[Rfam]
RNA sequence: UGCACCUAAAAGCGUUUUCUUGUCCGCCUUAAAAAAUGCGCUUGAAAAUCGUAGAUGUGUGCUAGAAUAUAUAUAUAGACAGUUGCAAGUGAUUCCAAUUGAUUUACAGUGGAAUCCAUGACGCUGACUACAGAU
Numbered sequence: 001u002g003c004a005c006c007u008a009a010a011a012g013c014g015u016u017u018u019c020u021u022g023u024c025c026g027c028c029u030u031a032a033a034a035a036a037u038g039c040g041c042u043u044g045a046a047a048a049u050c051g052u053a054g055a056u057g058u059g060u061g062c063u064a065g066a067a068u069a070u071a072u073a074u075a076u077a078g079a080c081a082g083u084u085g086c087a088a089g090u091g092a093u094u095c096c097a098a099u100u101g102a103u104u105u106a107c108a109g110u111g112g113a114a115u116c117c118a119u120g121a122c123g124c125u126g127a128c129u130a131c132a133g134a135u
Stems, first nucleotide, its partner, number of pairs: 002062004006057001012052003015048005022039002026037001077129002080126004089119003092115004098110003
Rfam assigns this 135-nucleotide sequence from Drosophila willistoni to the family "Small nucleolar RNA psi28S-3316". Its family is annotated with nucleolus and RNA processing in the Gene Ontology. The family's RNA type in Rfam is H/ACA-box small nucleolar RNA. Taxonomically the source falls in Sophophora (Eukaryota, Hexapoda, Cyclorrhapha, Acalyptratae). Pairs were carried over by alignment from the consensus structure, which was predicted with RNAfold. From the family's description: psi28S-3316 is a member of the H/ACA class of snoRNA. This family is responsible for guiding the modification of uridine 3316 in Drosophila 28S rRNA to pseudouridine.